[Rfam]
RNA: MIR390 microRNA precursor family
RNA sequence: UGGAAAAAUCUAUAAAGCUCAGGAGGGAUAGCGCCAUUUAUUACACCAUAUAUUAUACAUAUUCUCUCCGUUUCUAACUACUAAAAUGUGCGUACGCGUAUGUAAUAAGGCGCUAUCUAUCCUGAGUUUCAUGGGUUCUUCUU
Numbered sequence: 001u002g003g004a005a006a007a008a009u010c011u012a013u014a015a016a017g018c019u020c021a022g023g024a025g026g027g028a029u030a031g032c033g034c035c036a037u038u039u040a041u042u043a044c045a046c047c048a049u050a051u052a053u054u055a056u057a058c059a060u061a062u063u064c065u066c067u068c069c070g071u072u073u074c075u076a077a078c079u080a081c082u083a084a085a086a087u088g089u090g091c092g093u094a095c096g097c098g099u100a101u102g103u104a105a106u107a108a109g110g111c112g113c114u115a116u117c118u119a120u121c122c123u124g125a126g127u128u129u130c131a132u133g134g135g136u137u138c139u140u141c142u143u
Stems, first nucleotide, its partner, number of pairs: 010134001016128009026118010